Rfam assigns this 86-nucleotide sequence from Schmidtea mediterranea to the family "mir-2147 microRNA precursor family".
The sequence is in the family's curated seed alignment.
Taxonomically the source falls in Schmidtea (Eukaryota, Eumetazoa, Spiralia, Dugesiidae).

RNA sequence: UUUUGGAUGUUAACAUCGGAAAACUCGCACCGUGAUAUUGUCAACUUCACAAUUUCACUGCGACUGUUCCCAUGUUACUUCCAGUU
Dot-bracket structure: ..(((((...(((((..((((.(.(((((..(((..(((((.......)))))..)))))))).).))))..)))))..)))))..